[Rfam]
The record is a 173-nucleotide RNA sequence from Paenactinomyces guangxiensis, which matches "Group II catalytic intron D1-D4-3" in Rfam. The family has 406 seed sequences and 4,274 matches in Rfam 15.1. The pairing is the family consensus, mapped onto this sequence. Taxonomically the source falls in Paenactinomyces (Bacteria, Bacillota, Bacilli, Thermoactinomycetaceae). Rfam describes the family as follows. Group II introns are found in rRNA, tRNA and mRNA of organelles in fungi, plants and protists, and also in mRNA in bacteria.
RNA sequence: UCCGCCGCGAGGCGGAAUCUGAAGGAAGCCGGCGGCAAAUCUCCGGUCUGAGGAACACGAACCUCAUACGAGGCUAGCGCUCAUUGGAUGAGUUUGCAAAACAAGAUAAAGUCCUUGCUACCGAAGGUGGGCGAGAGAAAAUGAGGCAGAUAGAUGGAGUGAAAGACUACGCU
Numbered sequence: 001u002c003c004g005c006c007g008c009g010a011g012g013c014g015g016a017a018u019c020u021g022a023a024g025g026a027a028g029c030c031g032g033c034g035g036c037a038a039a040u041c042u043c044c045g046g047u048c049u050g051a052g053g054a055a056c057a058c059g060a061a062c063c064u065c066a067u068a069c070g071a072g073g074c075u076a077g078c079g080c081u082c083a084u085u086g087g088a089u090g091a092g093u094u095u096g097c098a099a100a101a102c103a104a105g106a107u108a109a110a111g112u113c114c115u116u117g118c119u120a121c122c123g124a125a126g127g128u129g130g131g132c133g134a135g136a137g138a139a140a141a142u143g144a145g146g147c148a149g150a151u152a153g154a155u156g157g158a159g160u161g162a163a164a165g166a167c168u169a170c171g172c173u
Stems, first nucleotide, its partner, number of pairs: 001016006028173001030171002036165001041159005046151005062146006074137002078133006086114004092107004